[Rfam]
RNA sequence: GGAAAUUUGAGAGGAUUCGUUCCUAGUACGAGAGGACCGGAAUGAACAUACCGCUGUUGUACCAGUUGUUUUGCCAGAAGCAUUGCUGGAUAGAUAAGUAUGGAUUAGAUAAACGCUGAAAGCAUCUAAGUGUGAAACUAACCUCAAAAAAAUUUCCCCCUUUAAGUAGAACUUAAAGAUAAGCAUGGUGGCAGACUACCACCUUGAUAGGCCACAAGUGUAAGUACAGCAAUGUAUUAAGCUAAGUGGUACUAAUUAUGCGAAAG
Numbered sequence: 001g002g003a004a005a006u007u008u009g010a011g012a013g014g015a016u017u018c019g020u021u022c023c024u025a026g027u028a029c030g031a032g033a034g035g036a037c038c039g040g041a042a043u044g045a046a047c048a049u050a051c052c053g054c055u056g057u058u059g060u061a062c063c064a065g066u067u068g069u070u071u072u073g074c075c076a077g078a079a080g081c082a083u084u085g086c087u088g089g090a091u092a093g094a095u096a097a098g099u100a101u102g103g104a105u106u107a108g109a110u111a112a113a114c115g116c117u118g119a120a121a122g123c124a125u126c127u128a129a130g131u132g133u134g135a136a137a138c139u140a141a142c143c144u145c146a147a148a149a150a151a152a153u154u155u156c157c158c159c160c161u162u163u164a165a166g167u168a169g170a171a172c173u174u175a176a177a178g179a180u181a182a183g184c185a186u187g188g189u190g191g192c193a194g195a196c197u198a199c200c201a202c203c204u205u206g207a208u209a210g211g212c213c214a215c216a217a218g219u220g221u222a223a224g225u226a227c228a229g230c231a232a233u234g235u236a237u238u239a240a241g242c243u244a245a246g247u248g249g250u251a252c253u254a255a256u257u258a259u260g261c262g263a264a265a266g
Stems, first nucleotide, its partner, number of pairs: 001157008011145004017045007047102005055096003062089005067082006106140003113133005160178007180263001183261004187203005208254003211250005217243002224237005
The family of this 266-nucleotide part of an RNA from Mycoplasma suis is "Bacterial large subunit ribosomal RNA". The sequence is in the family's curated seed alignment. On this family, see Yusupov et al., Science 2001: "Crystal structure of the ribosome at 5.5 A resolution". NCBI's taxonomy places the organism under Bacteria, Bacillati, Mollicutes, Mycoplasma, Mycoplasma suis.